[Rfam]
Overview
Rfam assigns this 130-nucleotide RNA from Myripristis murdjan to the family "Small nucleolar RNA SNORA55". Rfam links the family to the GO terms RNA processing and nucleolus. Rfam's curators write: ACA55 is a member of the H/ACA class of snoRNA that guide the sites of modification of uridines to pseudouridines. It is annotated as an H/ACA-box small nucleolar RNA.

RNA sequence: GCACGGCAAUAAACCCUGUCCAUUCUGUUAAAUGUGUGACACGGGGAACGCUGGUGCCACAGAAACUCAACGUCGAUCCAGACGGACCUCCUCUUCCUGUGGAGCCUGUCUCUAUAACUUUGAUACAUCA
Numbered sequence: 001g002c003a004c005g006g007c008a009a010u011a012a013a014c015c016c017u018g019u020c021c022a023u024u025c026u027g028u029u030a031a032a033u034g035u036g037u038g039a040c041a042c043g044g045g046g047a048a049c050g051c052u053g054g055u056g057c058c059a060c061a062g063a064a065a066c067u068c069a070a071c072g073u074c075g076a077u078c079c080a081g082a083c084g085g086a087c088c089u090c091c092u093c094u095u096c097c098u099g100u101g102g103a104g105c106c107u108g109u110c111u112c113u114a115u116a117a118c119u120u121u122g123a124u125a126c127a128u129c130a
Stems, first nucleotide, its partner, number of pairs: 001057004014046006021038002067123004072118001080111006087104001090102002